Overview:
Rfam assigns this 103-nucleotide RNA sequence from Paenibacillus donghaensis to the family "Purine riboswitch aptamer".
[Rfam]
RNA sequence: GCGGAUAAUUAAAUAAGCUCUUGUAUAAGCUCAGAAAUCGGUUUGAGCGUUUCGACCAGGCAACCGUAAAUUGCCCCAGGCUACAAGAGGUACAAGAUGAAGA
Numbered sequence: 001g002c003g004g005a006u007a008a009u010u011a012a013a014u015a016a017g018c019u020c021u022u023g024u025a026u027a028a029g030c031u032c033a034g035a036a037a038u039c040g041g042u043u044u045g046a047g048c049g050u051u052u053c054g055a056c057c058a059g060g061c062a063a064c065c066g067u068a069a070a071u072u073g074c075c076c077c078a079g080g081c082u083a084c085a086a087g088a089g090g091u092a093c094a095a096g097a098u099g100a101a102g103a
Stems, first nucleotide, its partner, number of pairs: 018089008029048007057079001059075005